[Rfam]
RNA sequence: GCAACCCUGUUGGGAGAAUCCGGUCUACAGACGGCCGGUGCCGAAGGAGCAACCGCCCCGGAAACUCUCAGGCCAAAGGACCAGCAAGGGCAG
Numbered sequence: 001g002c003a004a005c006c007c008u009g010u011u012g013g014g015a016g017a018a019u020c021c022g023g024u025c026u027a028c029a030g031a032c033g034g035c036c037g038g039u040g041c042c043g044a045a046g047g048a049g050c051a052a053c054c055g056c057c058c059c060g061g062a063a064a065c066u067c068u069c070a071g072g073c074c075a076a077a078g079g080a081c082c083a084g085c086a087a088g089g090g091c092a093g
Stems, first nucleotide, its partner, number of pairs: 006088001008086006020038006040073003043069002047067003053061002
Rfam assigns this 93-nucleotide sequence from Rhizobium gallicum to the family "Glycine riboswitch aptamer". A search with the family's covariance model found it, with a score of 64 bits.